[Rfam]
RNA: TPP riboswitch aptamer (THI element)
Organism: Koleobacter methoxysyntrophicus
RNA sequence: UACUGCAAAAAGGGGAGCUGGUUAGGCCGGCUGAGAGUGAACCAAAGGUUCAGACCCUCUAACCUGAUCUGGGUAAUGCCAGCGUAGGGAUUUGAUUUAACGGGAAU
Numbered sequence: 001u002a003c004u005g006c007a008a009a010a011a012g013g014g015g016a017g018c019u020g021g022u023u024a025g026g027c028c029g030g031c032u033g034a035g036a037g038u039g040a041a042c043c044a045a046a047g048g049u050u051c052a053g054a055c056c057c058u059c060u061a062a063c064c065u066g067a068u069c070u071g072g073g074u075a076a077u078g079c080c081a082g083c084g085u086a087g088g089g090a091u092u093u094g095a096u097u098u099a100a101c102g103g104g105a106a107u
Base pairs, nucleotide, nucleotide: 008093009092010091011058012057013056014055017031018030019029020028021027038052039051040050041049042048063088064087065086066085069082070081071080072079